RNA sequence: UAUUCACUAACCGUAAGUCGCUCUGGAUAAGAGCGUCUGCUAAAUGACUGUAA
Numbered sequence: 001u002a003u004u005c006a007c008u009a010a011c012c013g014u015a016a017g018u019c020g021c022u023c024u025g026g027a028u029a030a031g032a033g034c035g036u037c038u039g040c041u042a043a044a045u046g047a048c049u050g051u052a053a
Stems, first nucleotide, its partner, number of pairs: 013040003019035006
Background: Rfam assigns this 53-nucleotide sequence from Coregonus sp. 'balchen' to the family "UnaL2 LINE 3' element". The source organism's lineage runs through Eukaryota, Craniata, Actinopteri, Osteoglossocephalai and Coregonus. Rfam classes the family as a cis-regulatory element. It scores 59 bits against the family's covariance model. About the family: The eel long interspersed element (LINE) UnaL2 and its partner short interspersed element (SINE) share a conserved 3' tail containing a stem-loop that is critical for their retrotransposition. Presumably, the first step of retrotransposition is the recognition of their 3' tails by UnaL2-encoded reverse transcriptase. The solution structure of a 17-nucleotide RNA derived from the 3' tail of UnaL2 was determined by NMR. The family's consensus secondary structure is taken from published work.